TPP riboswitch aptamer (THI element): a 104-nucleotide RNA from Cetobacterium somerae. The source organism's lineage runs through Bacteria, Fusobacteriati, Fusobacteriota, Cetobacterium and Cetobacterium somerae.
RNA sequence: UGUUGUUGCUAGGGGUGCCUUUGUGGCUGAGAGACUUUGAAAAAAGUUAACCCUUCGAACCUGAUUUGGUUAAAACCAACGUAGGGAAGCUAUUUUAUCAAGUU
Dot-bracket structure: .....(.(((((((..(((.....)))......(((((....)))))...)))).....((((..((((......))))..))))..))).)............